[Rfam]
Rfam assigns this 62-nucleotide RNA sequence to the family "L2-Alphaproteobacteria ribosomal protein leader". Pairs were carried over by alignment from the consensus structure, which is taken from published work.
RNA sequence: GGGGACCUUCGGGGCCCUAUAAAUCCAUCGGACCUAUGGUCCAAAGCAACGGAAGACAGAGA
Numbered sequence: 001g002g003g004g005a006c007c008u009u010c011g012g013g014g015c016c017c018u019a020u021a022a023a024u025c026c027a028u029c030g031g032a033c034c035u036a037u038g039g040u041c042c043a044a045a046g047c048a049a050c051g052g053a054a055g056a057c058a059g060a061g062a
Base pairs, nucleotide, nucleotide: 001018002017003016004015006014007013008012030042031041032040033039034038